[Rfam]
RNA sequence: CUAGGUAUGGUGAUAUGGUGCCAGAAACAGUUUUUGGUAAAAUUGUUGGUAGUUUAUGUUCACUCAGUGGUGUGCUCGUUAUUGCGCUACCGGUCCCUGUCAUUGUUUCCAAC
Dot-bracket structure: .(.((.((((.((((.((.((..............((((.........(...........)...........))))................)))).)))).))))..)).).